The record is a 56-nucleotide RNA sequence from Evansella cellulosilytica, which matches "Streptococcus sRNA SpF59 (ldcC RNA)" in Rfam. Rfam classes the family as a small RNA.

RNA sequence: UGACCACUCCUUUCUUAGGAAGUCUAGGCCAUGCGGACAGCCGGGUCAAAUGCCGA
Number, nucleotide and partner (000 for none) at each position: 001u048002g047003a046004c045005c044006a023007c022008u021009c000010c019011u018012u000013u000014c000015u000016u000017a000018g011019g010020a000021a008022g007023u006024c000025u000026a000027g000028g000029c000030c000031a000032u000033g000034c000035g000036g000037a000038c000039a000040g000041c000042c000043g000044g005045g004046u003047c002048a001049a000050a000051u000052g000053c000054c000055g000056a000